[Rfam]
RNA: Fluoride riboswitch aptamer (crcB RNA motif)
RNA sequence: AAGGAUAAUGGCGAUGAAGCUCGCCUUGCUUUUAUGCUAAACCGCCGCCAUGCAGCGCGACUGAUAGCUUCUGGCCAUCA
Numbered sequence: 001a002a003g004g005a006u007a008a009u010g011g012c013g014a015u016g017a018a019g020c021u022c023g024c025c026u027u028g029c030u031u032u033u034a035u036g037c038u039a040a041a042c043c044g045c046c047g048c049c050a051u052g053c054a055g056c057g058c059g060a061c062u063g064a065u066a067g068c069u070u071c072u073g074g075c076c077a078u079c080a
Stems, first nucleotide, its partner, number of pairs: 010025004016071006044061001046059002